[Rfam]
Overview
Rfam assigns this 62-nucleotide RNA sequence from Pelagibacterium luteolum to the family "terC RNA". The family's consensus secondary structure is taken from published work. It is annotated as a cis-regulatory element.

RNA sequence: GCACAGUGCCGGGCCCCUCUGGCGCAGUGCUCUUGAUCACUGCGUGAUGUCGGAACUGUUCC
Numbered sequence: 001g002c003a004c005a006g007u008g009c010c011g012g013g014c015c016c017c018u019c020u021g022g023c024g025c026a027g028u029g030c031u032c033u034u035g036a037u038c039a040c041u042g043c044g045u046g047a048u049g050u051c052g053g054a055a056c057u058g059u060u061c062c
Stems, first nucleotide, its partner, number of pairs: 006056002009053004022045008